[Rfam]
Shown here is a 75-nucleotide sequence from Streptomyces netropsis, a member of the family "ASpks TB sRNA". It scores 83 bits against the family's covariance model. The organism belongs to Streptomyces, within Bacteria.
RNA sequence: CUUCAGCGACCCCAGCCACAGCGGUUGUCCGGCCGGCCGGUCCUGGCCGUAGGUCGCCAGCAACGCCUGGGCCUC
Numbered sequence: 001c002u003u004c005a006g007c008g009a010c011c012c013c014a015g016c017c018a019c020a021g022c023g024g025u026u027g028u029c030c031g032g033c034c035g036g037c038c039g040g041u042c043c044u045g046g047c048c049g050u051a052g053g054u055c056g057c058c059a060g061c062a063a064c065g066c067c068u069g070g071g072c073c074u075c
Stems, first nucleotide, its partner, number of pairs: 014026004033069001038065002043060003047056001049054001
Dot-bracket structure: .............((((.....))))......(....((...(((.(.(....).).)))...))...)......